[Rfam]
RNA: mir-344 microRNA precursor family
Organism: Peromyscus maniculatus
RNA sequence: CUACCAGUCAGGCUCUGGCCAUAUUCCAGGACACAUCAGAUCCUGGGUAUGACUAAAGCCCGACUAUACA
Numbered sequence: 001c002u003a004c005c006a007g008u009c010a011g012g013c014u015c016u017g018g019c020c021a022u023a024u025u026c027c028a029g030g031a032c033a034c035a036u037c038a039g040a041u042c043c044u045g046g047g048u049a050u051g052a053c054u055a056a057a058g059c060c061c062g063a064c065u066a067u068a069c070a
Stems, first nucleotide, its partner, number of pairs: 007064003011060004016055003020051004027039001029037002
Dot-bracket structure: ......(((.((((.(((.((((...(.((.....)).)........)))).))).)))).)))......